[Rfam]
RNA sequence: GGCUCGGUGAUUACUUUGCCUUUAUGGCAGUAUACGCUAUUCUGAAAGAGUAUGAAAGAUAAAUACAUUAAUUUUAAUGAGAGCC
Numbered sequence: 001g002g003c004u005c006g007g008u009g010a011u012u013a014c015u016u017u018g019c020c021u022u023u024a025u026g027g028c029a030g031u032a033u034a035c036g037c038u039a040u041u042c043u044g045a046a047a048g049a050g051u052a053u054g055a056a057a058g059a060u061a062a063a064u065a066c067a068u069u070a071a072u073u074u075u076a077a078u079g080a081g082a083g084c085c
Base pairs, nucleotide, nucleotide: 001085002084003083004082005081

This 85-nucleotide sequence from Arabis alpina belongs to the Rfam family "Small nucleolar RNA U54". Its family is annotated with RNA processing and nucleolus in the Gene Ontology. The literature on the family includes a 2003 paper in Nucleic Acids Res by Chen et al., "The high diversity of snoRNAs in plants: identification and comparative study of 120 snoRNA genes from Oryza sativa". By type it is a C/D-box small nucleolar RNA. About the family: U54 is a C/D box small nucleolar RNA, which acts as a methylation guide for 18S ribosomal RNA in plants.